[Rfam]
RNA sequence: ACUGUGCGGCUACUUAUGUAAAACUUAAGUGUUACUCGCGAAUUGUGAUCAUGAAUUUGUUUGAGUGUCAAACUAGGUUGAGAAAAACUGAAUGUCUUAGUGCCCUAUUCUUGUAGUAUACUCAUUUCCAGAGUUUGCAAGAGGGCUGGUGAUUCUUAAAAUA
Numbered sequence: 001a002c003u004g005u006g007c008g009g010c011u012a013c014u015u016a017u018g019u020a021a022a023a024c025u026u027a028a029g030u031g032u033u034a035c036u037c038g039c040g041a042a043u044u045g046u047g048a049u050c051a052u053g054a055a056u057u058u059g060u061u062u063g064a065g066u067g068u069c070a071a072a073c074u075a076g077g078u079u080g081a082g083a084a085a086a087a088c089u090g091a092a093u094g095u096c097u098u099a100g101u102g103c104c105c106u107a108u109u110c111u112u113g114u115a116g117u118a119u120a121c122u123c124a125u126u127u128c129c130a131g132a133g134u135u136u137g138c139a140a141g142a143g144g145g146c147u148g149g150u151g152a153u154u155c156u157u158a159a160a161a162u163a
Base pairs, nucleotide, nucleotide: 022079023078024077025076026075027074034066035065036064037063038062042056043055044054090155091154092153093152106144108143109142110141111140112139113138114137115136120134121133
The family of this 163-nucleotide sequence from Apophysomyces sp. BC1034 is "small nucleolar RNA snR35". NCBI's taxonomy places the organism under Eukaryota, Mucoromycota, Mucoromycotina, Mucoromycetes, Apophysomyces. Its Rfam clan is "SNORA13 clan". It is annotated as an H/ACA-box small nucleolar RNA. The literature on the family includes a 2005 paper in J Biol Chem by Li et al., "Identification and functional analysis of 20 Box H/ACA small nucleolar RNAs (snoRNAs) from Schizosaccharomyces pombe". Its family is annotated with RNA processing and nucleolus in the Gene Ontology.